A member of the RNA family "Small nucleolar RNA SNORD18" from Brassica oleracea, 76 nucleotides long. It is annotated as a C/D-box small nucleolar RNA. Pairs were carried over by alignment from the consensus structure, which was predicted with PFOLD. Lineage of the source: Eukaryota > Streptophytina > Embryophyta > Brassicaceae > Brassica oleracea. The match comes from Rfam's covariance-model search (43 bits). A reference for the family is Prislei et al. (1993), "Two different snoRNAs are encoded in introns of amphibian and human L1 ribosomal protein genes", Nucleic Acids Res.

RNA sequence: GAGACAUGAUGAGUAACAAAUUGGUCCGUGUUUCAGAUUAACCAUGACUGAUAAUUUUACACCAAAUUCUGAUCUU
Numbered sequence: 001g002a003g004a005c006a007u008g009a010u011g012a013g014u015a016a017c018a019a020a021u022u023g024g025u026c027c028g029u030g031u032u033u034c035a036g037a038u039u040a041a042c043c044a045u046g047a048c049u050g051a052u053a054a055u056u057u058u059a060c061a062c063c064a065a066a067u068u069c070u071g072a073u074c075u076u
Stems, first nucleotide, its partner, number of pairs: 001076004